A member of the RNA family "mir-9256 microRNA precursor family" from Pipistrellus kuhlii, 67 nucleotides long.
RNA sequence: AUAUACACAGAGUGGCCAGAUUAUGAUGAUCUCUGAACGCAUAAUAAUCCGGCCACUCUGUGUGUGU
Number, nucleotide and partner (000 for none) at each position: 001a000002u000003a000004u064005a063006c062007a061008c060009a059010g058011a057012g056013u055014g054015g053016c052017c051018a000019g049020a048021u047022u046023a045024u044025g000026a042027u041028g040029a000030u000031c000032u000033c000034u000035g000036a000037a000038c000039g000040c028041a027042u026043a000044a024045u023046a022047a021048u020049c019050c000051g017052g016053c015054c014055a013056c012057u011058c010059u009060g008061u007062g006063u005064g004065u000066g000067u000
The family has 8 seed sequences and 31,772 matches in Rfam 15.1. The family's consensus secondary structure was predicted with RNAalifold. It scores 86 bits against the family's covariance model.